[Rfam]
RNA sequence: CCGAGGAGUGACGUUCACGUAGCGAAGCUCCGUGAUUAUAAUACGUCACUCCGACCUGCCGCCGAAGCGCAGCUGAGGGGCGUUACCAAAA
Numbered sequence: 001c002c003g004a005g006g007a008g009u010g011a012c013g014u015u016c017a018c019g020u021a022g023c024g025a026a027g028c029u030c031c032g033u034g035a036u037u038a039u040a041a042u043a044c045g046u047c048a049c050u051c052c053g054a055c056c057u058g059c060c061g062c063c064g065a066a067g068c069g070c071a072g073c074u075g076a077g078g079g080g081c082g083u084u085a086c087c088a089a090a091a
Stems, first nucleotide, its partner, number of pairs: 008049006017033003021029002058081003062078002066074002

The record is a 91-nucleotide sequence, which matches "GA-cis RNA" in Rfam. The base pairs follow the family's consensus structure, which is taken from published work. It is one of the family's seed sequences.